[Rfam]
RNA sequence: AGGCCUCUCGCGGGAGAGAUCGGGCCUUGCCCGGCGCUGAAGGCGAAACCGCCCCGGAAACGCUCAAGCAGAAGGACCGCGCGAGACGU
Numbered sequence: 001a002g003g004c005c006u007c008u009c010g011c012g013g014g015a016g017a018g019a020u021c022g023g024g025c026c027u028u029g030c031c032c033g034g035c036g037c038u039g040a041a042g043g044c045g046a047a048a049c050c051g052c053c054c055c056g057g058a059a060a061c062g063c064u065c066a067a068g069c070a071g072a073a074g075g076a077c078c079g080c081g082c083g084a085g086a087c088g089u
Stems, first nucleotide, its partner, number of pairs: 006084002009081005020034004036069003039065002043063003049057002

Rfam assigns this 89-nucleotide sequence from Caulobacter vibrioides to the family "Glycine riboswitch aptamer". Rfam's curators write: This family represents the bacterial glycine riboswitch. Glycine riboswitches usually consist of two metabolite-binding aptamers domains with similar structures in tandem. The aptamers cooperatively bind glycine to regulate the expression of downstream genes.